[Rfam]
RNA sequence: GGAGAAGCAAAGUGAUGAGCAUUACUGGCUGGAACCCCAAAGAGGCACGUGUGUGUGUGUGCGCGCAUGUCUGUGUGUGUCUGUGUCUGUGUGUGUCUGUGUCUGUGUGUCUGUCUGUCUGUCUGUCUUCUUGUCUGUGCGUGUGCAUGUAUGUCUGGGAGUAUGAGUGUGUGUGACUGGUGGUAGGGAACUAGUUAUGUGCCUUCUGUUGGACCAUGACAGUCAAACUGAUAAGAUCUGAUUGCUUC
Numbered sequence: 001g002g003a004g005a006a007g008c009a010a011a012g013u014g015a016u017g018a019g020c021a022u023u024a025c026u027g028g029c030u031g032g033a034a035c036c037c038c039a040a041a042g043a044g045g046c047a048c049g050u051g052u053g054u055g056u057g058u059g060u061g062c063g064c065g066c067a068u069g070u071c072u073g074u075g076u077g078u079g080u081c082u083g084u085g086u087c088u089g090u091g092u093g094u095g096u097c098u099g100u101g102u103c104u105g106u107g108u109g110u111c112u113g114u115c116u117g118u119c120u121g122u123c124u125g126u127c128u129u130c131u132u133g134u135c136u137g138u139g140c141g142u143g144u145g146c147a148u149g150u151a152u153g154u155c156u157g158g159g160a161g162u163a164u165g166a167g168u169g170u171g172u173g174u175g176a177c178u179g180g181u182g183g184u185a186g187g188g189a190a191c192u193a194g195u196u197a198u199g200u201g202c203c204u205u206c207u208g209u210u211g212g213a214c215c216a217u218g219a220c221a222g223u224c225a226a227a228c229u230g231a232u233a234a235g236a237u238c239u240g241a242u243u244g245c246u247u248c
Stems, first nucleotide, its partner, number of pairs: 004248007014238003026225006036159004041154001043152001045150003049146008061135001065130001067128001161174004177194005196218004201214001203212002